[Rfam]
RNA sequence: UGCUUAUCGAGAGUGGUGGAGGGAAAGGCCCUGCGAAACCACAGCAACCGGCCAUUAAGGCGUCAGGUGCUAAUUCCUGCCGAAAGGCAAAGAUGAGAG
Numbered sequence: 001u002g003c004u005u006a007u008c009g010a011g012a013g014u015g016g017u018g019g020a021g022g023g024a025a026a027g028g029c030c031c032u033g034c035g036a037a038a039c040c041a042c043a044g045c046a047a048c049c050g051g052c053c054a055u056u057a058a059g060g061c062g063u064c065a066g067g068u069g070c071u072a073a074u075u076c077c078u079g080c081c082g083a084a085a086g087g088c089a090a091a092g093a094u095g096a097g098a099g
Base pairs, nucleotide, nucleotide: 001099003097004096005095006094007093008092013042014041015040016039017038021031022030023029026078027077028076043071044070045069046068048067049066050064051063052062075091081087

Record summary:
SAM riboswitch aptamer (S box leader): a 99-nucleotide sequence from a Desulfuromonadales bacterium. A search with the family's covariance model found it, with a score of 78 bits.